[Rfam]
Nucleotides: 097
Stems, first nucleotide, its partner, number of pairs: 001097008013041001015040003021031003025069004042061004047057002049053001065089001070086006
Number, partner (000 for none) and nucleotide at each position: 001097g002096c003095c004094u005093u006092a007091u008090c009000a010000a011000g012000a013041g014000u015040g016039g017038u018000g019000g020000a021031g022030g023029g024000a025069c026068a027067g028066g029023c030022c031021c032000a033000u034000u035000g036000a037000a038017a039016c040015c041013c042061g043060g044059c045058a046000a047057c048056c049053u050000a051000u052000u053049a054000a055000a056048g057047g058045u059044g060043c061042u062000a063000a064000u065089u066028c067027c068026u069025g070086c071085a072084g073083a074082g075081u076000u077000u078000a079000u080000a081075a082074u083073u084072c085071u086070g087000g088000a089065a090008g091007a092006u093005g094004a095003g096002g097001u
Record summary:
The family of this 97-nucleotide RNA from Soehngenia longivitae is "SAM riboswitch aptamer (S box leader)". The source organism's lineage runs through Bacteria, Bacillati, Bacillota, Tissierellaceae and Soehngenia. Clan: SAM clan. The base pairs follow the family's consensus structure, which is taken from published work.